[Rfam]
Potassium channel RNA editing signal: a 114-nucleotide RNA sequence from Anopheles gambiae. Lineage of the source: Eukaryota > Bilateria > Insecta > Culicidae > Anopheles gambiae. The base pairs follow the family's consensus structure, which is taken from published work.
RNA sequence: GUUGGGUACGGUGACAUGACGCCCAAGACGUACAUCGGCAUGUUUGUCGGUGCGCUGUGUGCGCUGGCCGGUGUGCUGACGAUCGCCCUGCCCGUGCCCGUCAUCGUGAGCAAC
Numbered sequence: 001g002u003u004g005g006g007u008a009c010g011g012u013g014a015c016a017u018g019a020c021g022c023c024c025a026a027g028a029c030g031u032a033c034a035u036c037g038g039c040a041u042g043u044u045u046g047u048c049g050g051u052g053c054g055c056u057g058u059g060u061g062c063g064c065u066g067g068c069c070g071g072u073g074u075g076c077u078g079a080c081g082a083u084c085g086c087c088c089u090g091c092c093c094g095u096g097c098c099c100g101u102c103a104u105c106g107u108g109a110g111c112a113a114c
Stems, first nucleotide, its partner, number of pairs: 001114002004111001007108005013102003018097001021095002037077004050062002
About the family: This family represents a group of sequences related to the human potassium channel Kv1.1 hairpin element which directs the efficient modification of an adenosine to inosine by an adenosine deaminase acting on RNA (ADAR). The ADAR modification causes an isoleucine/valine recoding event which lies in the ion-conducting pore of the potassium channel. It is thought that this editing event targets the process of fast inactivation and allows a more rapid recovery from inactivation at negative potentials. It scores 91 bits against the family's covariance model. Gene Ontology term of the family: adenosine to inosine editing. It is annotated as a cis-regulatory element.